[Rfam]
RNA sequence: AGAGGCUCUCUGCGGCCGGGGUGGGACGCUUGUCUCAUCGCCGCGGCGAUGAAGCAAGCUUUCUGCCAGGCUGCUCACACUGCCUGC
Numbered sequence: 001a002g003a004g005g006c007u008c009u010c011u012g013c014g015g016c017c018g019g020g021g022u023g024g025g026a027c028g029c030u031u032g033u034c035u036c037a038u039c040g041c042c043g044c045g046g047c048g049a050u051g052a053a054g055c056a057a058g059c060u061u062u063c064u065g066c067c068a069g070g071c072u073g074c075u076c077a078c079a080c081u082g083c084c085u086g087c
Base pairs, nucleotide, nucleotide: 004084005083006082012074013073014072015071016070017069020067021066022065023064024063025062026061028059029058030057031056032055033054037050038049039048040047041046
Dot-bracket structure: ...(((.....((((((..(((((((.((((((...(((((....)))))...)))))).))))))).)))))).......)))...
Shown here is an 87-nucleotide sequence from Myotis lucifugus, a member of the family "mir-9195 microRNA precursor family". The match comes from Rfam's covariance-model search (92 bits). The source organism's lineage runs through Eukaryota, Deuterostomia, Craniata, Eutheria and Myotis.